[Rfam]
Shown here is a 150-nucleotide sequence from Vicugna pacos, a member of the family "Small Cajal body specific RNA 21". The source organism's lineage runs through Eukaryota, Sarcopterygii, Tetrapoda, Artiodactyla and Vicugna. It is annotated as a small Cajal body RNA. Gene Ontology terms of the family: Cajal body, nucleolus and RNA processing. The match comes from Rfam's covariance-model search (79 bits). About the family: scaRNAs are a specific class of small nuclear RNAs which localise to the Cajal bodies and guide the modification of RNA polymerase II transcribed spliceosomal RNAs U1, U2, U4, U5 and U12. ACA68 (SCARNA21) is a member of the H/ACA class of snoRNAs that guide the sites of modification of uridines to pseudouridines. This snoRNA was identified by computational screening and its expression in mouse experimentally verified by Northern blot and primer extension analysis. ACA68 is proposed to guide the pseudouridylation of residue U19 in U12 snRNA. The family has 24 seed sequences and 278 matches in Rfam 15.1.
RNA sequence: AGGCUUGGUUUUCUGGGCGGUAGGCUCAGCCUGGCCCACCUCCCUUCAGACGAGCCUCCAACAGGGAUGCCCAGCCUCCUCUCUCACGAGAGAGGCAGAGGUGGUUAAGGCAGGAGCCUCACUCACCUGGAUUGUCCUUGCCUCACAUUC
Number, nucleotide and partner (000 for none) at each position: 001a000002g056003g055004c054005u053006u052007g051008g000009u000010u000011u000012u000013c000014u000015g044016g043017g042018c000019g040020g039021u038022a000023g036024g035025c000026u000027c000028a000029g000030c000031c000032u000033g000034g000035c024036c023037c000038a021039c020040c019041u000042c017043c016044c015045u000046u000047c000048a000049g000050a000051c007052g006053a005054g004055c003056c002057u000058c000059c000060a000061a000062c000063a000064g000065g000066g144067a143068u000069g141070c140071c000072c000073a000074g136075c000076c000077u000078c000079c000080u000081c000082u131083c130084u129085c000086a000087c000088g000089a000090g000091a000092g124093a123094g122095g000096c000097a000098g000099a000100g000101g000102u000103g000104g000105u000106u000107a000108a000109g000110g000111c000112a000113g000114g000115a000116g000117c000118c000119u000120c000121a000122c094123u093124c092125a000126c000127c000128u000129g084130g083131a082132u000133u000134g000135u000136c074137c000138u000139u000140g070141c069142c000143u067144c066145a000146c000147a000148u000149u000150c000
The family's consensus secondary structure was predicted with RNAalifold.